This 70-nucleotide RNA from Xenorhabdus koppenhoeferi belongs to the Rfam family "MicA sRNA". NCBI's taxonomy places the organism under Bacteria, Pseudomonadati, Pseudomonadota, Enterobacterales, Xenorhabdus. Pairs were carried over by alignment from the consensus structure, which was predicted with WAR. The family's RNA type in Rfam is small RNA.
RNA sequence: GAAGACGCGCAAAUUGUUAUCAUUCCUAUUCUCUAAGAUACUUUAUUCGGCCACCAGUGGUGGCCAUUUU
Numbered sequence: 001g002a003a004g005a006c007g008c009g010c011a012a013a014u015u016g017u018u019a020u021c022a023u024u025c026c027u028a029u030u031c032u033c034u035a036a037g038a039u040a041c042u043u044u045a046u047u048c049g050g051c052c053a054c055c056a057g058u059g060g061u062g063g064c065c066a067u068u069u070u
Stems, first nucleotide, its partner, number of pairs: 024038002027035002049065007
The literature on the family includes a 2005 paper in Genes Dev by Udekwu et al., "Hfq-dependent regulation of OmpA synthesis is mediated by an antisense RNA".